This 210-nucleotide sequence from Acer saccharum belongs to the Rfam family "small nucleolar RNA snoR127".
Its family is annotated with RNA processing and nucleolus in the Gene Ontology.
A search with the family's covariance model found it, with a score of 37 bits.
On this family, see Chen and Wu, Nucleic Acids Res 2009: "Mining small RNA sequencing data: a new approach to identify small nucleolar RNAs in Arabidopsis".

[Rfam]
RNA sequence: CUGGGAUGAUGUAGCUUUUAGCCAAAUCAGACAUUGAUGUGCUCCAUGAGUCAUUUUAUCUUUCAUGAAAGCUUGUUCUGGUGGGUAUUAUUGUAGAGGCACAUUUGCUGUUUUCUUACAAUACCCUUGAUCAAGCUAAGAGAUUUGAUGCCUUUUUGUCGAAGCGCGUUCUCUGAUGAUCUCUUGGAGAUUGGUUGCUUGCUGACCAGA
Numbered sequence: 001c002u003g004g005g006a007u008g009a010u011g012u013a014g015c016u017u018u019u020a021g022c023c024a025a026a027u028c029a030g031a032c033a034u035u036g037a038u039g040u041g042c043u044c045c046a047u048g049a050g051u052c053a054u055u056u057u058a059u060c061u062u063u064c065a066u067g068a069a070a071g072c073u074u075g076u077u078c079u080g081g082u083g084g085g086u087a088u089u090a091u092u093g094u095a096g097a098g099g100c101a102c103a104u105u106u107g108c109u110g111u112u113u114u115c116u117u118a119c120a121a122u123a124c125c126c127u128u129g130a131u132c133a134a135g136c137u138a139a140g141a142g143a144u145u146u147g148a149u150g151c152c153u154u155u156u157u158g159u160c161g162a163a164g165c166g167c168g169u170u171c172u173c174u175g176a177u178g179a180u181c182u183c184u185u186g187g188a189g190a191u192u193g194g195u196u197g198c199u200u201g202c203u204g205a206c207c208a209g210a
Stems, first nucleotide, its partner, number of pairs: 001209004